A member of the RNA family "MIR1120/MIR1122 microRNA precursor family" from Aegilops tauschii, 87 nucleotides long.
A reference for the family is Yao et al. (2007), "Cloning and characterization of microRNAs from wheat (Triticum aestivum L.)", Genome Biol.
Rfam 15.1 lists 44,765 matches to the family in 8 species.
Its family is annotated with RISC complex and miRNA-mediated post-transcriptional gene silencing in the Gene Ontology.
The family's consensus secondary structure was predicted with RNAalifold.
The match comes from Rfam's covariance-model search (88 bits).
The organism belongs to Aegilops tauschii, within Eukaryota.
RNA sequence: CUACUCCCUCUGUAAAGAAAUAUAAGAUCGUUUAGAUCACGAAUAUAGUGAUCUAAACGAUCUUAUAUUUCUUUGCAGAGGGAGUAC
Dot-bracket structure: ..(((.(((((.(((((.((((((((((((((((((((((.......)))))))))))))))))))))).))))).))))).)))..